[Rfam]
RNA sequence: CGGCGGUGCCCUCCUUGGGCGUUUCCUCCCUAGACUUCGGGCCGCCGACGUUUACGCCGCGCGGCCUCUUUUUUUGCUCCGA
Numbered sequence: 001c002g003g004c005g006g007u008g009c010c011c012u013c014c015u016u017g018g019g020c021g022u023u024u025c026c027u028c029c030c031u032a033g034a035c036u037u038c039g040g041g042c043c044g045c046c047g048a049c050g051u052u053u054a055c056g057c058c059g060c061g062c063g064g065c066c067u068c069u070u071u072u073u074u075u076g077c078u079c080c081g082a
Base pairs, nucleotide, nucleotide: 008020009019010018011017039067040066041065042064043063044062045061046059047058
Dot-bracket structure: .......((((.....))))..................(((((((((..........)).)))))))...............

This 82-nucleotide RNA from Rhodoplanes elegans belongs to the Rfam family "Makes More Granules Regulator RNA (mmgR)". It scores 64 bits against the family's covariance model. Gene Ontology terms of the family: response to nitrogen compound, DNA-templated transcription, termination and protein binding. Rfam describes the family as follows. SuhB later renamed mmgR (makes more granules regulator) was a putative non-coding RNA found multiple times in the Agrobacterium tumefaciens genome and related alpha-proteobacteria. Other non-coding RNAs uncovered in the same analysis include: speF, ybhL, metA, and serC.Several studies inSinorhizobium meliloti showed that suhB element is indeed a non-coding RNA:firstly it was detected on Northern blot and called Sm8RNA, secondly in an RNAseq study referred to as SmelC689.The mutant phenotype's (strain lacking the small RNA) cytoplasm contains higher content of polyhydroxybutyrate (PBH)storage granules than wild type strain. The sRNA is required to limit the PBH intracellular accumulation when the nitrogen-fixing Sinorhizobium meliloti is under condition of surplus carbon in relation to nitrogen. It has been renamed to mmgR. Further study confirmed that mmgR fine-tunes the regulation of PBH storage.Northern blot confirmed the expression of the sRNA in other rhizobia species. MmgR homologues were found in most alpha-proteobacteria. The organism belongs to Rhodoplanes, within Bacteria.